RNA sequence: GUCGUACUUUAAAAUCGUUCCUUGCUUCCGCGGGCUUGGCGACUGACCCGGAUCGGAGGCUGAAUAAUCCGUAAGGAGCAAUUGAUG
Numbered sequence: 001g002u003c004g005u006a007c008u009u010u011a012a013a014a015u016c017g018u019u020c021c022u023u024g025c026u027u028c029c030g031c032g033g034g035c036u037u038g039g040c041g042a043c044u045g046a047c048c049c050g051g052a053u054c055g056g057a058g059g060c061u062g063a064a065u066a067a068u069c070c071g072u073a074a075g076g077a078g079c080a081a082u083u084g085a086u087g
Stems, first nucleotide, its partner, number of pairs: 017079007024060006032049003

A member of the RNA family "RpsF leader" from Plesiomonas shigelloides, 87 nucleotides long. Conserved and widely distributed to many bacterial species RNA structure. It precedes operon containing rpsF, which encodes ribosomal protein S6. The motif also precedes operon containing rpsR, which encodes ribosomal protein S18. The RNA was shown to interact with S6:S18 protein dimer in vitro. Rfam classes the family as a cis-regulatory leader.